[Rfam]
The record is a 77-nucleotide RNA from Heliothis virescens, which matches "let-7 microRNA precursor family" in Rfam.
From the family's description: This family represents the microRNAs (miRNA) let-7 and mir-98. let-7 was identified from a study of developmental timing in C. elegans, and was later shown to be part of a much larger class of non-coding RNAs termed miRNAs.
Its family is annotated with RISC complex and miRNA-mediated post-transcriptional gene silencing in the Gene Ontology.

RNA sequence: ACUGGUUGAGGUAGUAGGUUGUAUAGUACUGAAUUACAACUUAUUGGAGACACUGUACGGCCUACUAACUUUCCUGG
Numbered sequence: 001a002c003u004g005g006u007u008g009a010g011g012u013a014g015u016a017g018g019u020u021g022u023a024u025a026g027u028a029c030u031g032a033a034u035u036a037c038a039a040c041u042u043a044u045u046g047g048a049g050a051c052a053c054u055g056u057a058c059g060g061c062c063u064a065c066u067a068a069c070u071u072u073c074c075u076g077g
Stems, first nucleotide, its partner, number of pairs: 002076001004074002008071003012067016032042002035039001

Lineage of the source: Eukaryota > Metazoa > Panorpida > Heteroneura > Heliothis. Rfam 15.1 lists 8,694 matches to the family in 797 species. A reference for the family is Rougvie (2001), "Control of developmental timing in animals", Nat Rev Genet.